The family of this 105-nucleotide RNA sequence from Ovis aries is "Vault RNA".

RNA sequence: GCGCUGGCUGUAGCUCAGUGGUUCUUUCGAAUACAGAGUGAUCAAAUUACCCAAUUACCCUCUCUGAGGCUGGUUCGAGACCAGCAGAUGCUCUCCAGUCCUUAA
Numbered sequence: 001g002c003g004c005u006g007g008c009u010g011u012a013g014c015u016c017a018g019u020g021g022u023u024c025u026u027u028c029g030a031a032u033a034c035a036g037a038g039u040g041a042u043c044a045a046a047u048u049a050c051c052c053a054a055u056u057a058c059c060c061u062c063u064c065u066g067a068g069g070c071u072g073g074u075u076c077g078a079g080a081c082c083a084g085c086a087g088a089u090g091c092u093c094u095c096c097a098g099u100c101c102u103u104a105a
Base pairs, nucleotide, nucleotide: 003099004098005097006096007095013089015087018085019084021082026079027078028077029076030075031074032073
For this family Rfam cites "Evolution of Vault RNAs" (Stadler et al., Mol Biol Evol, 2009). Taxonomically the source falls in Ovis (Eukaryota, Craniata, Vertebrata, Euteleostomi). Rfam classes the family as a non-coding RNA gene. The match comes from Rfam's covariance-model search (39 bits). Rfam's curators write: This family of RNAs are found as part of the enigmatic vault ribonucleoprotein complex. The complex consists of a major vault protein (MVP), two minor vault proteins (VPARP and TEP1), and several small untranslated RNA molecules. It has been suggested that the vault complex is involved in drug resistance.